The family of this 193-nucleotide RNA is "RT-15 RNA". The base pairs follow the family's consensus structure, which is taken from published work.
[Rfam]
RNA sequence: GGGCGCCAGCAGUAUGACGGUCAAGGCCCUCAUGCCCGUGCGCACAGUGAAUCUGGUCGCGCCGCUGGGCCACAAGCCCACCGACAGGCACACAACGGAUACGGCCGCGCCUGCGCGCGGCGCGUCCGGUGCAGCCGCCCCGCUGAUCGGUCAUCGCCAUCAUGGUGAUGGCCUUCGGCAGGGCGGCCUACAU
Numbered sequence: 001g002g003g004c005g006c007c008a009g010c011a012g013u014a015u016g017a018c019g020g021u022c023a024a025g026g027c028c029c030u031c032a033u034g035c036c037c038g039u040g041c042g043c044a045c046a047g048u049g050a051a052u053c054u055g056g057u058c059g060c061g062c063c064g065c066u067g068g069g070c071c072a073c074a075a076g077c078c079c080a081c082c083g084a085c086a087g088g089c090a091c092a093c094a095a096c097g098g099a100u101a102c103g104g105c106c107g108c109g110c111c112u113g114c115g116c117g118c119g120g121c122g123c124g125u126c127c128g129g130u131g132c133a134g135c136c137g138c139c140c141c142g143c144u145g146a147u148c149g150g151u152c153a154u155c156g157c158c159a160u161c162a163u164g165g166u167g168a169u170g171g172c173c174u175u176c177g178g179c180a181g182g183g184c185g186g187c188c189u190a191c192a193u
Base pairs, nucleotide, nucleotide: 004042005041006040012035013034014033015032016031017030019028020027021026057186058185059184060183062181063083064082066080067079068078069077070076088132089131090130091129096128097127098126099125102124103123106117107116108115109114135171136170139167141165144162145161146160149158150157151156